A member of the RNA family "Small nucleolar RNA Z105" from Protea cynaroides, 69 nucleotides long. A search with the family's covariance model found it, with a score of 46 bits. On this family, see Chen et al., Nucleic Acids Res 2003: "The high diversity of snoRNAs in plants: identification and comparative study of 120 snoRNA genes from Oryza sativa".

[Rfam]
RNA sequence: GUCUGGUGAUGAUGAUCUUAAAUCUACCGAUAGAUUCAUGACUGGAUAAUAUCCUCCUACUCAUUCUGA
Numbered sequence: 001g002u003c004u005g006g007u008g009a010u011g012a013u014g015a016u017c018u019u020a021a022a023u024c025u026a027c028c029g030a031u032a033g034a035u036u037c038a039u040g041a042c043u044g045g046a047u048a049a050u051a052u053c054c055u056c057c058u059a060c061u062c063a064u065u066c067u068g069a
Stems, first nucleotide, its partner, number of pairs: 006064004027045002031040001